[Rfam]
RNA: Cis-regulator of HTH transcription factor
Organism: Filifactor alocis
RNA sequence: CUUUUUUACGCAUAAUAGACCACCUCUAUACAUUUUACUGUUCCUAUUAAAUUUGAAACAGGUAUAGAAAAACGUGUUAUAUAGUUUGUGAGUUCCUAAGGUUUAUAUAUUAAUACAAGCACUACUCAACUCCAAUAAAAAAAAGCCGUUGUUUGGUAGUGCUAUUUGUGCUGUAAAAACGUAAUUCUCACUUUCAAAUGGCGGUUCGUUGGAGGUCGAAGUUGCCAUGAGAUAUAUUA
Numbered sequence: 001c002u003u004u005u006u007u008a009c010g011c012a013u014a015a016u017a018g019a020c021c022a023c024c025u026c027u028a029u030a031c032a033u034u035u036u037a038c039u040g041u042u043c044c045u046a047u048u049a050a051a052u053u054u055g056a057a058a059c060a061g062g063u064a065u066a067g068a069a070a071a072a073c074g075u076g077u078u079a080u081a082u083a084g085u086u087u088g089u090g091a092g093u094u095c096c097u098a099a100g101g102u103u104u105a106u107a108u109a110u111u112a113a114u115a116c117a118a119g120c121a122c123u124a125c126u127c128a129a130c131u132c133c134a135a136u137a138a139a140a141a142a143a144a145g146c147c148g149u150u151g152u153u154u155g156g157u158a159g160u161g162c163u164a165u166u167u168g169u170g171c172u173g174u175a176a177a178a179a180c181g182u183a184a185u186u187c188u189c190a191c192u193u194u195c196a197a198a199u200g201g202c203g204g205u206u207c208g209u210u211g212g213a214g215g216u217c218g219a220a221g222u223u224g225c226c227a228u229g230a231g232a233u234a235u236a237u238u239a
Base pairs, nucleotide, nucleotide: 002109004107008103011101013099016098017097028077029076030075031074033072034071035070036069038067039066040065041064043062044061045060047058048057078091120161121160122159123158124157125156126155128153129149130148197223198222199221202218203217204216205215206214